[Rfam]
A member of the RNA family "Glycine riboswitch aptamer" from Tepidimonas alkaliphilus, 147 nucleotides long.
RNA sequence: GGGUUUCCUGCUGGAGAGAGGCGCCGCCGUCGCCGGACCGAACCCCGGACGGCCGCGUCCACCGAAGGAGCAAACGGAUCGCGGCGACUGCCUCGGGCGGCGCUGGGACCCGUGAAUCUCUCAGGUAAAGCGGACAGCAGGCGUGCU
Numbered sequence: 001g002g003g004u005u006u007c008c009u010g011c012u013g014g015a016g017a018g019a020g021g022c023g024c025c026g027c028c029g030u031c032g033c034c035g036g037a038c039c040g041a042a043c044c045c046c047g048g049a050c051g052g053c054c055g056c057g058u059c060c061a062c063c064g065a066a067g068g069a070g071c072a073a074a075c076g077g078a079u080c081g082c083g084g085c086g087a088c089u090g091c092c093u094c095g096g097g098c099g100g101c102g103c104u105g106g107g108a109c110c111c112g113u114g115a116a117u118c119u120c121u122c123a124g125g126u127a128a129a130g131c132g133g134a135c136a137g138c139a140g141g142c143g144u145g146c147u
Stems, first nucleotide, its partner, number of pairs: 007141007020059004061126003064122002068120003074113004